Annotation:
A member of the RNA family "Small nucleolar RNA Z278" from Durio zibethinus, 118 nucleotides long. Rfam 15.1 lists 1,130 matches to the family in 214 species. Rfam classes the family as a C/D-box small nucleolar RNA. NCBI's taxonomy places the organism under Eukaryota, Embryophyta, Malvales, Helicteroideae, Durio.
[Rfam]
RNA sequence: GCCAAUGAUAACUUAAUCCACUUUAGAUGAGGUGCAGUGGAGUCAAGACACUGUUUAACAGGGAGAACCUGCUUGGUAAAAGCUGCAAUUCAAUGAUAUUAAUGGAUUCGACUGAGGC
Number, nucleotide and partner (000 for none) at each position: 001g118002c117003c116004a000005a000006u000007g000008a000009u000010a000011a000012c000013u000014u000015a000016a000017u000018c000019c000020a000021c000022u000023u000024u000025a000026g000027a000028u000029g000030a000031g000032g000033u000034g000035c000036a000037g000038u000039g000040g000041a000042g000043u000044c000045a000046a000047g000048a000049c063050a000051c061052u060053g059054u000055u000056u000057a000058a000059c053060a052061g051062g000063g049064a000065g000066a000067a000068c000069c000070u000071g000072c000073u000074u000075g000076g000077u000078a000079a000080a000081a000082g000083c000084u000085g000086c000087a000088a000089u000090u000091c000092a000093a000094u000095g000096a000097u000098a000099u000100u000101a000102a000103u000104g000105g000106a000107u000108u000109c000110g000111a000112c000113u000114g000115a000116g003117g002118c001